The family of this 359-nucleotide part of an RNA from Halobacterium salinarum is "Archaeal large subunit ribosomal RNA". The family's consensus secondary structure is taken from published work. A reference for the family is Yusupov et al. (2001), "Crystal structure of the ribosome at 5.5 A resolution", Science. Taxonomically the source falls in Halobacterium salinarum NRC-34001 (Archaea, Methanobacteriati, Halobacteria, Halobacterium salinarum). The sequence is in the family's curated seed alignment.
RNA sequence: CGGGAAUAACCGACGUUAGGGAAUUCGGCAAGUUAGUCCCGUAAGUUCGCGAUAAGGGAUGCCUGCCUCGCAAUGAGGCAGGUCGCAGUGACUCGGAGGCUCCGACUGUCUAAUAACAACAUAGGUGACCGCAAAUCCGCAAGGACGCGUACGGUCACUGAAUCCUGCCCAGUGCGGGUAUCUGAACACCCAGUACAAUGGGGCGAAGGACCCGUUAACGGCGGGGGUAACUAUGACCCUCUUAAGGUAGCGUAGUACCUUGCCGCUUCAGUAGCGGCUUGCAUGAAUGGAUCAACGAGAGCCUCACUGUCCCAACGUUGGGCCCGGUGAACUGUACGUUCCAGUGCGGAGUCUGGAGA
Numbered sequence: 001c002g003g004g005a006a007u008a009a010c011c012g013a014c015g016u017u018a019g020g021g022a023a024u025u026c027g028g029c030a031a032g033u034u035a036g037u038c039c040c041g042u043a044a045g046u047u048c049g050c051g052a053u054a055a056g057g058g059a060u061g062c063c064u065g066c067c068u069c070g071c072a073a074u075g076a077g078g079c080a081g082g083u084c085g086c087a088g089u090g091a092c093u094c095g096g097a098g099g100c101u102c103c104g105a106c107u108g109u110c111u112a113a114u115a116a117c118a119a120c121a122u123a124g125g126u127g128a129c130c131g132c133a134a135a136u137c138c139g140c141a142a143g144g145a146c147g148c149g150u151a152c153g154g155u156c157a158c159u160g161a162a163u164c165c166u167g168c169c170c171a172g173u174g175c176g177g178g179u180a181u182c183u184g185a186a187c188a189c190c191c192a193g194u195a196c197a198a199u200g201g202g203g204c205g206a207a208g209g210a211c212c213c214g215u216u217a218a219c220g221g222c223g224g225g226g227g228u229a230a231c232u233a234u235g236a237c238c239c240u241c242u243u244a245a246g247g248u249a250g251c252g253u254a255g256u257a258c259c260u261u262g263c264c265g266c267u268u269c270a271g272u273a274g275c276g277g278c279u280u281g282c283a284u285g286a287a288u289g290g291a292u293c294a295a296c297g298a299g300a301g302c303c304u305c306a307c308u309g310u311c312c313c314a315a316c317g318u319u320g321g322g323c324c325c326g327g328u329g330a331a332c333u334g335u336a337c338g339u340u341c342c343a344g345u346g347c348g349g350a351g352u353c354u355g356g357a358g359a
Base pairs, nucleotide, nucleotide: 001326002325003324004323010321011320012319013318014317015316016315017314019312020311021310036060037059038058039057040056045050061083062082063081064080065079066078067077068076069075084088096305097304098303099302100301101300102299103297104296107121108120109119124159125158126157127156128155129154130153131152132149136145137144138143162292163291164290165289167222168221169220172219173218174215175214176213177212178211181210182209183208189202190201191200192199223241224240225239226238227237228236242246262278263277264276265275266274267273340357341356342355343354344353